[Rfam]
RNA sequence: GGGAAAUGGACUGAGCGGCGCCGACCGCCAAACAACCGGC
Numbered sequence: 001g002g003g004a005a006a007u008g009g010a011c012u013g014a015g016c017g018g019c020g021c022c023g024a025c026c027g028c029c030a031a032a033c034a035a036c037c038g039g040c
Stems, first nucleotide, its partner, number of pairs: 015028004021039003
The family of this 40-nucleotide RNA sequence from Polerovirus BCHV is "Putative RNA-dependent RNA polymerase ribosomal frameshift site". The sequence is in the family's curated seed alignment. Taxonomically the source falls in Polerovirus BCHV (Viruses, Pisuviricota, Sobelivirales, Polerovirus). The literature on the family includes a 2002 paper in Arch Virol by Hauser et al., "Biological properties and molecular characterization of beet chlorosis virus (BChV)". Rfam classes the family as a frameshift element. Rfam links the family to the GO term viral translational frameshifting.